[Rfam]
RNA: Lysine riboswitch aptamer
RNA sequence: AAUCUAAGAAGAGGUUGCCUAACUUAUUAGUAGAUUUGUGAAGAUAAUGCUAUAUCUAUGAAGCAAAUUCAAAGGAUUUUAGGCCGAAAUUAACAACUGUAGCAUCAGUAGUUAAUUGGGACUAGACUAAAUAAGCCUAGGACUGUCGCAACUAAAAGGUUGCGGAGCGCUAUCGACGAU
Numbered sequence: 001a002a003u004c005u006a007a008g009a010a011g012a013g014g015u016u017g018c019c020u021a022a023c024u025u026a027u028u029a030g031u032a033g034a035u036u037u038g039u040g041a042a043g044a045u046a047a048u049g050c051u052a053u054a055u056c057u058a059u060g061a062a063g064c065a066a067a068u069u070c071a072a073a074g075g076a077u078u079u080u081a082g083g084c085c086g087a088a089a090u091u092a093a094c095a096a097c098u099g100u101a102g103c104a105u106c107a108g109u110a111g112u113u114a115a116u117u118g119g120g121a122c123u124a125g126a127c128u129a130a131a132u133a134a135g136c137c138u139a140g141g142a143c144u145g146u147c148g149c150a151a152c153u154a155a156a157a158g159g160u161u162g163c164g165g166a167g168c169g170c171u172a173u174c175g176a177c178g179a180u
Stems, first nucleotide, its partner, number of pairs: 008173001010171002017084006025076001033069007088117007096109004118144002122140004127135002146165007